[Rfam]
This 126-nucleotide sequence from Pustulibacterium marinum belongs to the Rfam family "Bacteroidete tryptophan peptide leader RNA". Pairs were carried over by alignment from the consensus structure, which is taken from published work. Rfam links the family to the GO terms S-adenosylmethionine metabolic process and regulation of gene expression.
RNA sequence: UUGAAAUAACAAAAUAGAAUAUGAACAGAAUUUUAAACAAUACUUGGUGGUGGAACAACUUACGUCAAACGUCGUGAGCAGUACACCUUAUAGUAUAGUUUAAUCUAAAUACACAAAAGGCUUGUC
Numbered sequence: 001u002u003g004a005a006a007u008a009a010c011a012a013a014a015u016a017g018a019a020u021a022u023g024a025a026c027a028g029a030a031u032u033u034u035a036a037a038c039a040a041u042a043c044u045u046g047g048u049g050g051u052g053g054a055a056c057a058a059c060u061u062a063c064g065u066c067a068a069a070c071g072u073c074g075u076g077a078g079c080a081g082u083a084c085a086c087c088u089u090a091u092a093g094u095a096u097a098g099u100u101u102a103a104u105c106u107a108a109a110u111a112c113a114c115a116a117a118a119g120g121c122u123u124g125u126c
Base pairs, nucleotide, nucleotide: 036100037099038098040096041095042094043093044092047089049087050086051085052084056081059078060077061076062072063071064070

Source information:
The match comes from Rfam's covariance-model search (85 bits).